RNA sequence: UGGCGGGGGAGCACUACAACGGGUGGAGCCUGCGGUUUAAUUGGAUUCAACGCCGGGAAGCUUACCGGGGGAGACAGCGGGAUGAAGGUCGGGCUGAAGACCUUACCAGACUAGCUGAGAGGUGGUGCAUGGCCGCCGUCAGUUCGUACUGUGAAGCAUCCUGUUAAGUCAGGCAACGAGCGAGACCCGCGCCCCCAGUUGCCAGCGGUUCCCUUCGGGGAAGCCGGGCACACUGGGGGGACUGCCGGCGCUAAGCCGGAGGAAGGUGCGGGCAACGGCAGGUCCGUAUGCCCCGAAUCCCCCGGGCUACACGCGGGCUACAAUGGCCGGGACAAUGGGUACCGACCCCGAAAGGGGUAGGUAAUCCCCUAAACCCGGUCUAACCUGGGAUCGAGGGCUGCAACUCGCCCUCGUGAACCUGGAAUCCGUAGUAAUCGCGCCUCAAAAUGGCGCGGUGAAUACGUCCCUGCUCCUUGCACACACCGCCCGUCAAGCCACCCGAGUGGGCCAGGGGCGAGGGGGUGGCCCUAGGCCACCUUCGAGCCCAGGGUCCGCGAGGGGGGCUAAGUCGUAACAAGG
Number, nucleotide and partner (000 for none) at each position: 001u480002g479003g477004c476005g475006g000007g474008g473009g472010a471011g470012c469013a468014c000015u000016a464017c463018a000019a000020c428021g427022g426023g425024u424025g321026g000027a319028g318029c317030c316031u315032g314033c313034g312035g310036u309037u000038u000039a000040a000041u056042u055043g054044g053045a000046u000047u000048c000049a000050a000051c000052g000053c044054c043055g042056g041057g000058a000059a000060g000061c000062u000063u000064a000065c305066c304067g303068g302069g301070g300071g299072a000073g000074a000075c117076a116077g115078c114079g112080g111081g000082a000083u000084g000085a000086a000087g107088g106089u105090c000091g103092g102093g101094c000095u000096g000097a000098a000099g000100a000101c093102c092103u091104u000105a089106c088107c087108a000109g000110a000111c080112u079113a000114g078115c077116u076117g075118a000119g000120a000121g294122g293123u000124g292125g291126u290127g289128c000129a000130u288131g287132g283133c282134c281135g279136c278137c277138g276139u000140c000141a000142g181143u180144u179145c178146g177147u176148a000149c156150u155151g000152u000153g000154a000155a150156g149157c000158a000159u000160c173161c172162u171163g170164u000165u000166a000167a000168g000169u000170c163171a162172g161173g160174c000175a000176a147177c146178g145179a144180g143181c142182g000183a000184g000185a000186c000187c271188c270189g269190c268191g000192c239193c238194c237195c236196c235197a234198g233199u000200u000201g000202c228203c227204a000205g000206c226207g225208g224209u222210u221211c220212c219213c000214u000215u000216c000217g000218g000219g212220g211221a210222a209223g000224c208225c207226g206227g203228g202229c000230a000231c000232a000233c198234u197235g196236g195237g194238g193239g192240g000241a000242c262243u261244g000245c259246c258247g257248g256249c255250g000251c000252u000253a000254a000255g249256c248257c247258g246259g245260a000261g243262g242263a000264a000265g000266g000267u000268g190269c189270g188271g187272g000273c000274a000275a000276c138277g137278g136279c135280a000281g134282g133283u132284c000285c000286g000287u131288a130289u127290g126291c125292c124293c122294c121295g000296a000297a000298u000299c071300c070301c069302c068303c067304g066305g065306g000307c000308u000309a036310c035311a000312c034313g033314c032315g031316g030317g029318c028319u027320a000321c025322a000323a000324u000325g380326g379327c378328c377329g376330g375331g374332a000333c000334a000335a000336u000337g368338g367339g366340u000341a000342c361343c360344g000345a000346c357347c356348c355349c354350g000351a000352a000353a000354g349355g348356g347357g346358u000359a000360g343361g342362u000363a000364a000365u000366c339367c338368c337369c000370u000371a000372a000373a000374c331375c330376c329377g328378g327379u326380c325381u000382a000383a000384c000385c000386u000387g418388g000389g000390a000391u000392c413393g412394a411395g410396g409397g408398c407399u000400g000401c000402a000403a000404c000405u000406c000407g398408c397409c396410c395411u394412c393413g392414u000415g000416a000417a000418c387419c000420u000421g000422g000423a000424a024425u023426c022427c021428g020429u000430a000431g000432u000433a000434a456435u455436c454437g453438c452439g451440c450441c449442u000443c000444a000445a000446a000447a000448u000449g441450g440451c439452g438453c437454g436455g435456u434457g000458a000459a000460u000461a000462c000463g017464u016465c000466c000467c000468u013469g012470c011471u010472c009473c008474u007475u005476g004477c003478a000479c002480a001481c000482a000483c578484c000485g575486c000487c000488c571489g570490u000491c568492a000493a565494g564495c563496c562497a000498c560499c559500c558501g000502a000503g555504u554505g553506g552507g551508c550509c549510a000511g000512g546513g545514g544515c543516g000517a000518g540519g539520g538521g537522g536523u535524g534525g533526c532527c531528c000529u000530a000531g527532g526533c525534c524535a523536c522537c521538u520539u519540c518541g000542a000543g515544c514545c513546c512547a000548g000549g509550g508551u507552c506553c505554g504555c503556g000557a000558g500559g499560g498561g000562g496563g495564c494565u493566a000567a000568g491569u000570c489571g488572u000573a000574a000575c485576a000577a000578g483579g000
A member of the RNA family "Archaeal small subunit ribosomal RNA" from Archaeoglobus fulgidus, 579 nucleotides of a longer RNA.
Pairs were carried over by alignment from the consensus structure, which is taken from published work.
NCBI's taxonomy places the organism under Archaea, Methanobacteriati, Archaeoglobaceae, Archaeoglobus, Archaeoglobus fulgidus.
Its Rfam clan is "SSU clan".
On this family, see Yusupov et al., Science 2001: "Crystal structure of the ribosome at 5.5 A resolution".
Rfam's curators put it in the seed alignment.
Rfam links the family to the GO terms ribosome and structural constituent of ribosome.